[Rfam]
RNA sequence: GUAGGCCUUUAGAUCAUCUAAAGAGUAUUCAACAUUAGAUGAGCUAAAGGCCUAUAC
Numbered sequence: 001g002u003a004g005g006c007c008u009u010u011a012g013a014u015c016a017u018c019u020a021a022a023g024a025g026u027a028u029u030c031a032a033c034a035u036u037a038g039a040u041g042a043g044c045u046a047a048a049g050g051c052c053u054a055u056a057c
Stems, first nucleotide, its partner, number of pairs: 002054011014042004019037003023033001

The family of this 57-nucleotide RNA sequence from Macaca mulatta is "mir-1245 microRNA precursor family". Rfam 15.1 lists 45 matches to the family in 23 species. The source organism's lineage runs through Eukaryota, Metazoa, Vertebrata, Cercopithecinae and Macaca. The base pairs follow the family's consensus structure, which was predicted with RNAalifold.